[Rfam]
This 168-nucleotide RNA from Burkholderia cenocepacia belongs to the Rfam family "Burkholderia sRNA 35". By type it is a small RNA. The source organism's lineage runs through Bacteria, Burkholderiales, Burkholderiaceae, Burkholderia and Burkholderia cenocepacia. Rfam links the family to the GO term bacterial biofilm matrix. Pairs were carried over by alignment from the consensus structure, which was predicted with RNAfold. Identified by RNA-seq, RACE and Northern blot. Strongly expressed in biofilm.
Nucleotides: 168
Base pairs, nucleotide, nucleotide: 004023005022006021007020008019009017010016032070033069034068035067036066037065038064041061042060045056046055047054073106074105075104076103077102078101080099081098082097083096084095111161113159114158115157116156117155118154119153120152121151122150123149124148125147126146127145128142129141130140131139132138
Number, partner (000 for none) and nucleotide at each position: 001000a002000u003000g004023g005022c006021g007020c008019g009017a010016c011000g012000a013000c014000a015000a016010g017009u018000g019008c020007g021006c022005g023004c024000a025000a026000c027000g028000a029000u030000u031000c032070c033069g034068c035067u036066u037065c038064c039000g040000a041061c042060g043000c044000a045056c046055a047054u048000a049000u050000g051000u052000c053000c054047a055046u056045g057000g058000c059000a060042c061041g062000c063000a064038g065037g066036a067035a068034g069033c070032g071000a072000a073106u074105c075104c076103g077102g078101g079000a080099c081098u082097c083096u084095c085000a086000a087000c088000c089000c090000c091000c092000a093000u094000c095084g096083g097082g098081a099080g100000a101078c102077c103076c104075g105074g106073a107000g108000c109000c110000c111161u112000g113159a114158g115157c116156g117155a118154a119153c120152a121151u122150c123149c124148a125147c126146g127145c128142g129141g130140c131139u132138g133000u134000g135000c136000a137000c138132c139131g140130g141129c142128c143000c144000c145127g146126u147125g148124u149123g150122g151121a152120u153119g154118u155117u156116c157115g158114c159113u160000g161111a162000u163000u164000u165000u166000u167000u168000u